[Rfam]
RNA sequence: GAACAAAAAAAUAUUCAGCCUUUUUAUUUUCUUUUUUAUUCAGCCCACCCCUGGAGGCGGAUUUUCUGUGUAAAAACGAAAAUGAAAAUUCUAAAGCCUCCCAACUGGGAGGCUUUUUUGUC
Numbered sequence: 001g002a003a004c005a006a007a008a009a010a011a012u013a014u015u016c017a018g019c020c021u022u023u024u025u026a027u028u029u030u031c032u033u034u035u036u037u038a039u040u041c042a043g044c045c046c047a048c049c050c051c052u053g054g055a056g057g058c059g060g061a062u063u064u065u066c067u068g069u070g071u072a073a074a075a076a077c078g079a080a081a082a083u084g085a086a087a088a089u090u091c092u093a094a095a096g097c098c099u100c101c102c103a104a105c106u107g108g109g110a111g112g113c114u115u116u117u118u119u120g121u122c
Stems, first nucleotide, its partner, number of pairs: 021088011033076002036073004044054002057067001059065002093116010
The family of this 122-nucleotide sequence from Shewanella frigidimarina is "Phenylalanine leader peptide". It is annotated as a cis-regulatory leader. Lineage of the source: Bacteria > Pseudomonadati > Pseudomonadota > Alteromonadales > Shewanella frigidimarina.